[Rfam]
RNA sequence: GGUCAAGAGCAGCGGCCCCAAACCCUUGGAGUGGUCGCUCGGCAACCGGUCCCGCGCCGGUGCCUUCCAAGGAAGACCUGACCGGGCAGCAGCCGCUGUCAGGUAAUGGCGGGCC
Numbered sequence: 001g002g003u004c005a006a007g008a009g010c011a012g013c014g015g016c017c018c019c020a021a022a023c024c025c026u027u028g029g030a031g032u033g034g035u036c037g038c039u040c041g042g043c044a045a046c047c048g049g050u051c052c053c054g055c056g057c058c059g060g061u062g063c064c065u066u067c068c069a070a071g072g073a074a075g076a077c078c079u080g081a082c083c084g085g086g087c088a089g090c091a092g093c094c095g096c097u098g099u100c101a102g103g104u105a106a107u108g109g110c111g112g113g114c115c
Stems, first nucleotide, its partner, number of pairs: 001078004009040001011039006022032002041064003046060003051056001081104003085100006
Dot-bracket structure: ((((....(.((((((.....((.......)).)))))))(((..(((..(....).))).)))..........))))..(((.((((((....)))))).)))...........
Overview:
The record is a 115-nucleotide RNA sequence from Intrasporangium chromatireducens, which matches "SAM (S-adenosyl methionine) riboswitch aptamer" in Rfam. For this family Rfam cites "The aptamer core of SAM-IV riboswitches mimics the ligand-binding site of SAM-I riboswitches" (Weinberg et al., RNA, 2008). Clan: SAM clan. Rfam describes the family as follows. SAM-IV is a mRNA element that regulates gene expression via direct sensing of S-adenosylmethionine (SAM or AdoMet). Taxonomically the source falls in Intrasporangium chromatireducens (Bacteria, Bacillati, Actinomycetota, Intrasporangiaceae).